[Rfam]
The record is a 127-nucleotide RNA from Rhododendron simsii, which matches "Small nucleolar RNA snoR111" in Rfam. It is annotated as an H/ACA-box small nucleolar RNA. Rfam 15.1 lists 533 matches to the family in 223 species. On this family, see Marker et al., Curr Biol 2002: "Experimental RNomics: identification of 140 candidates for small non-messenger RNAs in the plant Arabidopsis thaliana". Rfam links the family to the GO terms RNA processing and nucleolus.
RNA sequence: GAAAUUGAAGAACAGAACACACCCUCUGUUUCUUCAAACACAGCAGGAGGUACAGAAAUGAUUACGGCGAGAUAUCGUUUCAGUCGUCACUCUCGGAAUUGACGAUUCGAUUGUUGCUCGUCCACAU
Numbered sequence: 001g002a003a004a005u006u007g008a009a010g011a012a013c014a015g016a017a018c019a020c021a022c023c024c025u026c027u028g029u030u031u032c033u034u035c036a037a038a039c040a041c042a043g044c045a046g047g048a049g050g051u052a053c054a055g056a057a058a059u060g061a062u063u064a065c066g067g068c069g070a071g072a073u074a075u076c077g078u079u080u081c082a083g084u085c086g087u088c089a090c091u092c093u094c095g096g097a098a099u100u101g102a103c104g105a106u107u108c109g110a111u112u113g114u115u116g117c118u119c120g121u122c123c124a125c126a127u
Stems, first nucleotide, its partner, number of pairs: 006036006013028004066123002069119003074111004083106007091098001